[Rfam]
RNA sequence: CCGGUGGCUUGCGCCACCGGCUACCUUUCGUCGUCCCUCCGGGACU
Numbered sequence: 001c002c003g004g005u006g007g008c009u010u011g012c013g014c015c016a017c018c019g020g021c022u023a024c025c026u027u028u029c030g031u032c033g034u035c036c037c038u039c040c041g042g043g044a045c046u
Stems, first nucleotide, its partner, number of pairs: 001020008033045005
Dot-bracket structure: ((((((((....))))))))............(((((...))))).
A member of the RNA family "Acido-Lenti-1 RNA" from Luteolibacter ambystomatis, 46 nucleotides long.
The family's consensus secondary structure is taken from published work.